This 63-nucleotide RNA sequence from Rattus norvegicus belongs to the Rfam family "U7 small nuclear RNA". Taxonomically the source falls in Rattus (Eukaryota, Chordata, Sarcopterygii, Muridae).
RNA sequence: AGCUAUUACAGCUCUUUCAGAAUUUUAUCUAGCAGAUUUUCUGACUUUGGUCAGAAAACUCAC
Numbered sequence: 001a002g003c004u005a006u007u008a009c010a011g012c013u014c015u016u017u018c019a020g021a022a023u024u025u026u027a028u029c030u031a032g033c034a035g036a037u038u039u040u041c042u043g044a045c046u047u048u049g050g051u052c053a054g055a056a057a058a059c060u061c062a063c
Stems, first nucleotide, its partner, number of pairs: 035060001037058009